[Rfam]
RNA: Small nucleolar RNA SNORA74
RNA sequence: UCCAGCAGUAGUCAGCCAUCUGAACAGAACCAUUCCUGGGAUGGUGUUACACUGCUGGGAGAGGAAGGUCUUCUCUUCAUCCGGUUGCCUCUGUCACUGUUCUGGUAGUGUCUGGCACUGGGGCAAGGGAGAGCUGUGCUUCCUUGAGAGUGUGCUGAGCAUGCACCUUGGCUGCUUAGUUCUAGUCUGGGAGCAGACACA
Numbered sequence: 001u002c003c004a005g006c007a008g009u010a011g012u013c014a015g016c017c018a019u020c021u022g023a024a025c026a027g028a029a030c031c032a033u034u035c036c037u038g039g040g041a042u043g044g045u046g047u048u049a050c051a052c053u054g055c056u057g058g059g060a061g062a063g064g065a066a067g068g069u070c071u072u073c074u075c076u077u078c079a080u081c082c083g084g085u086u087g088c089c090u091c092u093g094u095c096a097c098u099g100u101u102c103u104g105g106u107a108g109u110g111u112c113u114g115g116c117a118c119u120g121g122g123g124c125a126a127g128g129g130a131g132a133g134c135u136g137u138g139c140u141u142c143c144u145u146g147a148g149a150g151u152g153u154g155c156u157g158a159g160c161a162u163g164c165a166c167c168u169u170g171g172c173u174g175c176u177u178a179g180u181u182c183u184a185g186u187c188u189g190g191g192a193g194c195a196g197a198c199a200c201a
Stems, first nucleotide, its partner, number of pairs: 001059009011050002015045006021038001022036001024034001068134002071131006082123001085120001086117004096106003137195007152182001154180001156178006